[Rfam]
RNA sequence: GUUGGUUACGGCGAUAUGAGACCAGUCACAAUGUGGGGCAAAAUUGUGGGCUCGAUGUGUGCCAUUGCUGGUGUUUUGACCAUUGCCUUACCAGUGCCCGUAAUCGUAUCGAAC
Numbered sequence: 001g002u003u004g005g006u007u008a009c010g011g012c013g014a015u016a017u018g019a020g021a022c023c024a025g026u027c028a029c030a031a032u033g034u035g036g037g038g039c040a041a042a043a044u045u046g047u048g049g050g051c052u053c054g055a056u057g058u059g060u061g062c063c064a065u066u067g068c069u070g071g072u073g074u075u076u077u078g079a080c081c082a083u084u085g086c087c088u089u090a091c092c093a094g095u096g097c098c099c100g101u102a103a104u105c106g107u108a109u110c111g112a113a114c
Base pairs, nucleotide, nucleotide: 001114002113005110007108008107009106010105011104014101015100018097020095037077038076040074049063050062051061

Record summary:
The family of this 114-nucleotide RNA sequence from Echinostoma caproni is "Potassium channel RNA editing signal". Rfam links the family to the GO term adenosine to inosine editing. The organism belongs to Echinostoma, within Eukaryota. By type it is a cis-regulatory element.